RNA: SAM riboswitch aptamer (S box leader)
Organism: Sinomicrobium soli
Nucleotides: 111
Stems, first nucleotide, its partner, number of pairs: 003109006013043005021032003026085004044077004049073002051069004081103001086100006
Number, partner (000 for none) and nucleotide at each position: 001000c002000a003109g004108u005107u006106a007105u008104c009000a010000a011000g012000a013043a014042a015041g016040g017039c018000a019000u020000a021032g022031g023030g024000a025000a026085u027084a028083g029082a030023c031022c032021c033000g034000u035000u036000g037000a038000c039017g040016c041015c042014u043013u044077g045076g046075c047074a048000a049073c050072c051069c052068u053067c054066c055000g056000g057000g058000c059000c060000u061000g062000a063000a064000g065000c066054g067053g068052a069051g070000a071000a072050g073049g074047u075046g076045c077044u078000a079000a080000a081103u082029u083028c084027u085026a086100c087099c088098c089097u090096g091095g092000u093000u094000u095091c096090c097089a098088g099087g100086g101000a102000c103081a104008g105007a106006u107005g108004a109003c110000g111000a